Background:
This 117-nucleotide RNA sequence from Acidisphaera rubrifaciens belongs to the Rfam family "ALIL pseudoknot". It scores 121 bits against the family's covariance model. Rfam links the family to the GO term positive regulation of translational frameshifting.
RNA sequence: GGCCUGUUUUGCCCAGGCGGAGCUCGACCGCCCGUUCAAGCGAUGAUCUCGUUCAUCGACGAUCAUCGGGAAGCCUACGGGGUCGAGCCGAUCUGCAGGGUGCUGCCGAUCGCCCCG
Numbered sequence: 001g002g003c004c005u006g007u008u009u010u011g012c013c014c015a016g017g018c019g020g021a022g023c024u025c026g027a028c029c030g031c032c033c034g035u036u037c038a039a040g041c042g043a044u045g046a047u048c049u050c051g052u053u054c055a056u057c058g059a060c061g062a063u064c065a066u067c068g069g070g071a072a073g074c075c076u077a078c079g080g081g082g083u084c085g086a087g088c089c090g091a092u093c094u095g096c097a098g099g100g101u102g103c104u105g106c107c108g109a110u111c112g113c114c115c116c117g
Stems, first nucleotide, its partner, number of pairs: 016032005078117005089112002092109002095106004